[Rfam]
Nucleotides: 106
Stems, first nucleotide, its partner, number of pairs: 002098004009090002012086003019079003023075001025074002029072003033068003037064001041059003
Number, partner (000 for none) and nucleotide at each position: 001000a002098g003097g004096a005095g006000g007000g008000a009090c010089a011000a012086c013085c014084c015000c016000a017000g018000u019079g020078g021077c022000g023075g024000c025074g026073g027000c028000c029072a030071g031070c032000c033068c034067u035066g036000g037064a038000g039000c040000c041059c042058u043057g044000g045000a046000u047000u048000c049000a050000g051000c052000c053000c054000c055000g056000g057043c058042a059041g060000u061000a062000a063000g064037u065000a066035c067034a068033g069000a070031g071030c072029u073026c074025u075023c076000a077021g078020u079019c080000u081000g082000c083000a084014g085013g086012g087000c088000c089010u090009g091000g092000a093000g094000g095005c096004u097003c098002c099000g100000g101000g102000u103000g104000g105000g106000g